[Rfam]
RNA sequence: UCCAGUGGUAGUCAGCUGUCCAGGGCAGCACAGUGCCUGUGAUGGUGUUACACUGCUGGGAGAUAAAUGUCAGUCACUUCUUCUGGCUGUUGUCUCCGUUCUGGAGACAGCUGAAACCAGGAAGUGGCCUUGUGCUUCCAUGAGAGUGUGCUAAGGGUUUGCUAUCCCUCUAGUGCUAGUCCGGAAGCAUACACG
Numbered sequence: 001u002c003c004a005g006u007g008g009u010a011g012u013c014a015g016c017u018g019u020c021c022a023g024g025g026c027a028g029c030a031c032a033g034u035g036c037c038u039g040u041g042a043u044g045g046u047g048u049u050a051c052a053c054u055g056c057u058g059g060g061a062g063a064u065a066a067a068u069g070u071c072a073g074u075c076a077c078u079u080c081u082u083c084u085g086g087c088u089g090u091u092g093u094c095u096c097c098g099u100u101c102u103g104g105a106g107a108c109a110g111c112u113g114a115a116a117c118c119a120g121g122a123a124g125u126g127g128c129c130u131u132g133u134g135c136u137u138c139c140a141u142g143a144g145a146g147u148g149u150g151c152u153a154a155g156g157g158u159u160u161g162c163u164a165u166c167c168c169u170c171u172a173g174u175g176c177u178a179g180u181c182c183g184g185a186a187g188c189a190u191a192c193a194c195g
Stems, first nucleotide, its partner, number of pairs: 001060009011051002015046006021039004069129001073128004078123005084116001087113001089111001091109007132190008148176003152172002155169003
RNA: Small nucleolar RNA SNORA74
Organism: Asarcornis scutulata